Rfam assigns this 120-nucleotide RNA sequence from Andreesenella acetica to the family "Molybdenum/Tungsten riboswitch aptamer (Moco RNA motif)". A search with the family's covariance model found it, with a score of 75 bits.

RNA sequence: ACAAAUGAAUAUUUCCGAGCUGUUAUCUCUAAGGGCUUUUGCCUAAGGGAGGCAGCCUAUGGGUAUGAAGAGAAAUUUUUAUGCCUCCCGUAACUGGAAAGGAACUGUUGACAAAAUUUA
Numbered sequence: 001a002c003a004a005a006u007g008a009a010u011a012u013u014u015c016c017g018a019g020c021u022g023u024u025a026u027c028u029c030u031a032a033g034g035g036c037u038u039u040u041g042c043c044u045a046a047g048g049g050a051g052g053c054a055g056c057c058u059a060u061g062g063g064u065a066u067g068a069a070g071a072g073a074a075a076u077u078u079u080u081a082u083g084c085c086u087c088c089c090g091u092a093a094c095u096g097g098a099a100a101g102g103a104a105c106u107g108u109u110g111a112c113a114a115a116a117u118u119u120a
Stems, first nucleotide, its partner, number of pairs: 006111001011106001013104004019056006026050004033044004061086011087097002